[Rfam]
RNA sequence: UAAUAUAGUUGGCAAACUUUUCGAAAGAGAGGGACGCAAAGCUCCAGGUCUAAAGCGAUUAUUGCUAUGAUGGCUGAGCCGUGAAA
Numbered sequence: 001u002a003a004u005a006u007a008g009u010u011g012g013c014a015a016a017c018u019u020u021u022c023g024a025a026a027g028a029g030a031g032g033g034a035c036g037c038a039a040a041g042c043u044c045c046a047g048g049u050c051u052a053a054a055g056c057g058a059u060u061a062u063u064g065c066u067a068u069g070a071u072g073g074c075u076g077a078g079c080c081g082u083g084a085a086a
Base pairs, nucleotide, nucleotide: 012037013036017032018031019030020029021028022027041079042078043077045076046075047074048071049070050069055065056064057063058062
The family of this 86-nucleotide sequence from Sporosarcina luteola is "c-di-GMP-I riboswitch aptamer". Its family is annotated with cyclic-di-GMP binding in the Gene Ontology. Rfam's curators write: GEMM was predicted in a large-scale screen for bacterial structured RNA regulatory elements. Genes associated with GEMM are involved in a diverse array of functions, including chemotaxis regulation, signal transduction, secretion and chitin.